[Rfam]
RNA sequence: ACAGUACAAACUGAUCAGGCAAUAAACUUAUUAAGUUUGUGAAGCCGGGCCUUAAUUGGCAACAGGAUGAUUAUUACGCCUGUGGGACAGUG
Numbered sequence: 001a002c003a004g005u006a007c008a009a010a011c012u013g014a015u016c017a018g019g020c021a022a023u024a025a026a027c028u029u030a031u032u033a034a035g036u037u038u039g040u041g042a043a044g045c046c047g048g049g050c051c052u053u054a055a056u057u058g059g060c061a062a063c064a065g066g067a068u069g070a071u072u073a074u075u076a077c078g079c080c081u082g083u084g085g086g087a088c089a090g091u092g
Base pairs, nucleotide, nucleotide: 010091011090012089013088016086018046019045020044022040023039024038025037026036027035049060050059051058062083063082064081065080066079
NiCo (Nickel/Cobalt) riboswitch aptamer: a 92-nucleotide RNA sequence from Clostridium collagenovorans.
The source organism's lineage runs through Bacteria, Bacillati, Eubacteriales, Clostridium and Clostridium collagenovorans.
A search with the family's covariance model found it, with a score of 75 bits.
The family's consensus secondary structure is taken from published work.
On this family, see Furukawa et al., Mol Cell 2015: "Bacterial riboswitches cooperatively bind Ni(2+) or Co(2+) ions and control expression of heavy metal transporters".